RNA: serC leader
RNA sequence: GAGGUGGACACCUCUCCCCAACGAGAGGCUACUAUCUGAAAGGGUAGACAAU
Numbered sequence: 001g002a003g004g005u006g007g008a009c010a011c012c013u014c015u016c017c018c019c020a021a022c023g024a025g026a027g028g029c030u031a032c033u034a035u036c037u038g039a040a041a042g043g044g045u046a047g048a049c050a051a052u
Stems, first nucleotide, its partner, number of pairs: 011028006032047006